[Rfam]
RNA sequence: UAGAACCUUGGCAACCUGCGAUACAGGCCACCCACUGGAGCCUCAGUGCUUCUCAAGCUGCCUGUGGGAAAGUCCCCAGACCCUCCAGUAGAGAUACUGUCCAAGUGAUAGGACGAGCCACACUCCAUGGCCAACAAUCAUCUGCUGGGAGGCCCCUUGGGCUGAGCAGGGCUGGAUGUUGGCAUAAGUCACAGCAUAGUCAUGCAGGUAGUACUACUGUACUGACUCAAUGGGGCUCAAGUCCAAGGUUCU
Numbered sequence: 001u002a003g004a005a006c007c008u009u010g011g012c013a014a015c016c017u018g019c020g021a022u023a024c025a026g027g028c029c030a031c032c033c034a035c036u037g038g039a040g041c042c043u044c045a046g047u048g049c050u051u052c053u054c055a056a057g058c059u060g061c062c063u064g065u066g067g068g069a070a071a072g073u074c075c076c077c078a079g080a081c082c083c084u085c086c087a088g089u090a091g092a093g094a095u096a097c098u099g100u101c102c103a104a105g106u107g108a109u110a111g112g113a114c115g116a117g118c119c120a121c122a123c124u125c126c127a128u129g130g131c132c133a134a135c136a137a138u139c140a141u142c143u144g145c146u147g148g149g150a151g152g153c154c155c156c157u158u159g160g161g162c163u164g165a166g167c168a169g170g171g172c173u174g175g176a177u178g179u180u181g182g183c184a185u186a187a188g189u190c191a192c193a194g195c196a197u198a199g200u201c202a203u204g205c206a207g208g209u210a211g212u213a214c215u216a217c218u219g220u221a222c223u224g225a226c227u228c229a230a231u232g233g234g235g236c237u238c239a240a241g242u243c244c245a246a247g248g249u250u251c252u
Base pairs, nucleotide, nucleotide: 002252003251004250005249006248007247008246009245010244011243014209015208016207017206018205019204022066023065024064025063026062027061028060037052038051039050040049041048071237072236074235075234076233077232087098088097089096090095099114100113101112102111104109118181122179123178124176125175126174130172131171142169143168144167145166152162153161154160155159211222212221213220214219
Overview
The family of this 252-nucleotide RNA from Candidula unifasciata is "RNase MRP". Pairs were carried over by alignment from the consensus structure, which is taken from published work. Rfam describes the family as follows. RNase MRP is an enzymatically active ribonucleoprotein with two distinct roles in eukaryotes. In mitochondria it plays a direct role in the initiation of mitochondrial DNA replication. In the nucleus it is involved in precursor rRNA processing, where it cleaves the internal transcribed spacer 1 between 18S and 5.8S rRNAs. Despite distinct functions, RNase MRP has been shown to be evolutionarily related to RNase P. Like eukaryotic RNase P, RNase MRP is not catalytically active without associated protein subunits. The match comes from Rfam's covariance-model search (122 bits).